[Rfam]
RNA sequence: CGGCCGGGCUGGCUGUGUCUCUGGCCCUGGGUCGCGGGGUCCAGAGCUUCCUGGCACCCACCUGCCCUCGGCCGCGCUGUGACGGCUUCCUGGUCCUGCUGGCUCUGCUGAGGUCCCCGCAGCCGGUCUCGAGCCCCAGGUAAUGCCUCC
Number, nucleotide and partner (000 for none) at each position: 001c000002g000003g000004c000005c000006g000007g000008g000009c000010u000011g000012g000013c017014u000015g000016u000017g013018u000019c000020u000021c000022u000023g000024g000025c000026c000027c000028u000029g000030g000031g000032u000033c000034g000035c092036g000037g090038g089039g088040u000041c000042c000043a000044g000045a087046g086047c085048u000049u082050c081051c000052u079053g078054g077055c076056a000057c000058c074059c000060a000061c071062c070063u000064g000065c000066c000067c000068u000069c000070g062071g061072c000073c000074g058075c000076g055077c054078u053079g052080u000081g050082a049083c000084g000085g047086c046087u045088u039089c038090c037091u000092g035093g000094u000095c000096c000097u000098g000099c000100u000101g000102g000103c000104u000105c000106u000107g134108c133109u132110g000111a000112g000113g130114u000115c000116c000117c126118c125119g124120c000121a000122g000123c000124c119125g118126g117127u000128c000129u000130c113131g000132a109133g108134c107135c000136c000137c000138a000139g000140g000141u000142a000143a000144u000145g000146c000147c000148u000149c000150c000
RNA: Human acetyl-coA cholesterol acyltransferase mRNA